[Rfam]
RNA sequence: AAAAGGAGCAAGAAUGCCCUCUUGUUUUAUAAAGAGGGCAUUCUUGCUCCUUUUU
Number, nucleotide and partner (000 for none) at each position: 001a000002a053003a052004a051005g050006g049007a048008g047009c046010a045011a044012g043013a042014a041015u000016g000017c000018c000019c036020u035021c034022u033023u032024g000025u000026u000027u000028u000029a000030u000031a000032a023033a022034g021035a020036g019037g000038g000039c000040a000041u014042u013043c012044u011045u010046g009047c008048u007049c006050c005051u004052u003053u002054u000055u000
The family of this 55-nucleotide RNA from Pluchea indica is "Plastid-psbA-3 3UTR RNA". The sequence is in the family's curated seed alignment. Plastid psbA-3 is a non-coding RNA (ncRNA) present in plastids. The family's consensus secondary structure was predicted with LocARNA. The family is grouped with related families in Rfam's "Plastid-psbA 3UTR RNA clan". By type it is a cis-regulatory element.